[Rfam]
RNA sequence: AAGGAGCAAUAAACUUUUUCUUCUUCUAUCAAGAGGGUUUAUUGCUCCUUAA
Numbered sequence: 001a002a003g004g005a006g007c008a009a010u011a012a013a014c015u016u017u018u019u020c021u022u023c024u025u026c027u028a029u030c031a032a033g034a035g036g037g038u039u040u041a042u043u044g045c046u047c048c049u050u051a052a
Stems, first nucleotide, its partner, number of pairs: 001050012018035005